[Rfam]
RNA sequence: AUGAUCGGGGGAAAAGCCCUGUAGUUUUAUGAAAAGAGUUAUCGCUUUUGCAUCAUGAGCAUAGGGCUUUUCCCCUGAUCAU
Dot-bracket structure: ..(((((.(((.((..(((((...((.((((......................))))))..)))))..)).))).)))))..